[Rfam]
RNA: Small nucleolar RNA SNORA48
RNA sequence: AGACUCUGUCUCGGAGAAAAAAAAAAAAGCUUGAUGGUGCCCAUCUCACAUCAACCAGGAACAAAGCAACCCCCUGUUUAUCCCAGCUUGGCUUCUGGUCUAUGCCCAUGCCUGGUUUAUGCUUUGGACACAUAG
Numbered sequence: 001a002g003a004c005u006c007u008g009u010c011u012c013g014g015a016g017a018a019a020a021a022a023a024a025a026a027a028a029g030c031u032u033g034a035u036g037g038u039g040c041c042c043a044u045c046u047c048a049c050a051u052c053a054a055c056c057a058g059g060a061a062c063a064a065a066g067c068a069a070c071c072c073c074c075u076g077u078u079u080a081u082c083c084c085a086g087c088u089u090g091g092c093u094u095c096u097g098g099u100c101u102a103u104g105c106c107c108a109u110g111c112c113u114g115g116u117u118u119a120u121g122c123u124u125u126g127g128a129c130a131c132a133u134a135g
Base pairs, nucleotide, nucleotide: 002062005059006058007057008056011054013052014051019046025038075130076129077128078127079126080125090123091122092121096119097118098117100115101114102113104111105110